[Rfam]
Background
Shown here is a 103-nucleotide sequence from Clostridium chauvoei, a member of the family "SAM riboswitch aptamer (S box leader)". Pairs were carried over by alignment from the consensus structure, which is taken from published work. The source organism's lineage runs through Bacteria, Bacillati, Clostridia, Eubacteriales and Clostridium chauvoei.
RNA sequence: UUCUUAUCCAGAGAGGUGGAGGGAAAGGGCCCUACGAAACCCGGCAACCUGUGAUUUCACAAAGGUGCCAAUUCCUGUGGAAUAUUAUUUCACAAGAUAAGAA
Numbered sequence: 001u002u003c004u005u006a007u008c009c010a011g012a013g014a015g016g017u018g019g020a021g022g023g024a025a026a027g028g029g030c031c032c033u034a035c036g037a038a039a040c041c042c043g044g045c046a047a048c049c050u051g052u053g054a055u056u057u058c059a060c061a062a063a064g065g066u067g068c069c070a071a072u073u074c075c076u077g078u079g080g081a082a083u084a085u086u087a088u089u090u091c092a093c094a095a096g097a098u099a100a101g102a103a
Base pairs, nucleotide, nucleotide: 001103002102003101004100005099006098007097008096013042015041016040017039021032022031023030027076028075029074043069044068045067046066048065049064050061051060052059053058073095078092079091080090081089082088083087